[Rfam]
RNA sequence: AGGAAUCACUGGGAGCGCUGGUUAGGCCAGCUGAGAAUAAGACCCGUUUAAGUCUUUAAUCCCUAUACCUGAUCUGGAUAAUACCAGCGUAGGAAAGUGCGUCGAUCAUUAU
Number, nucleotide and partner (000 for none) at each position: 001a000002g000003g000004a000005a000006u000007c099008a098009c097010u096011g063012g062013g061014a060015g000016c000017g031018c030019u029020g028021g027022u000023u000024a000025g000026g000027c021028c020029a019030g018031c017032u000033g000034a000035g000036a000037a000038u000039a056040a055041g054042a053043c000044c000045c000046g000047u000048u000049u000050a000051a000052g000053u042054c041055u040056u039057u000058a000059a000060u014061c013062c012063c011064u000065a000066u000067a000068c093069c092070u091071g090072a000073u000074c087075u086076g085077g084078a000079u000080a000081a000082u000083a000084c077085c076086a075087g074088c000089g000090u071091a070092g069093g068094a000095a000096a010097g009098u008099g007100c000101g000102u000103c000104g000105a000106u000107c000108a000109u000110u000111a000112u000

Rfam assigns this 112-nucleotide RNA from Isachenkonia alkalipeptolytica to the family "TPP riboswitch aptamer (THI element)". Pairs were carried over by alignment from the consensus structure, which is taken from published work. Its family is annotated with thiamine pyrophosphate binding in the Gene Ontology.